[Rfam]
RNA sequence: UAUAAGUACAGAUAGAGAUAUACUAUACUGUGUACAGCAAGGAAGUGAAUUAAGGUUUAAGCGUACUUGUAAGUACGUCAUCUUGUUGGGAAUCGCCCAUUAGGGCGAUUUUUUGUUAUAGG
Numbered sequence: 001u002a003u004a005a006g007u008a009c010a011g012a013u014a015g016a017g018a019u020a021u022a023c024u025a026u027a028c029u030g031u032g033u034a035c036a037g038c039a040a041g042g043a044a045g046u047g048a049a050u051u052a053a054g055g056u057u058u059a060a061g062c063g064u065a066c067u068u069g070u071a072a073g074u075a076c077g078u079c080a081u082c083u084u085g086u087u088g089g090g091a092a093u094c095g096c097c098c099a100u101u102a103g104g105g106c107g108a109u110u111u112u113u114u115g116u117u118a119u120a121g122g
Base pairs, nucleotide, nucleotide: 007032008031009030010029011028012026013025014024035088036087037086038085039084040083045081046080047079048057049056050055061078062077063076064075065074066073089112090111091110092109093108094107095106096105097104098103